[Rfam]
RNA: UnaL2 LINE 3' element
Organism: Astyanax mexicanus
RNA sequence: UACUUGACUUUUUGUAAGUCGCUUUGGACAAAAGCGUCUGCCAAAUGUAAUGUA
Numbered sequence: 001u002a003c004u005u006g007a008c009u010u011u012u013u014g015u016a017a018g019u020c021g022c023u024u025u026g027g028a029c030a031a032a033a034g035c036g037u038c039u040g041c042c043a044a045a046u047g048u049a050a051u052g053u054a
Stems, first nucleotide, its partner, number of pairs: 013043001014041003020036006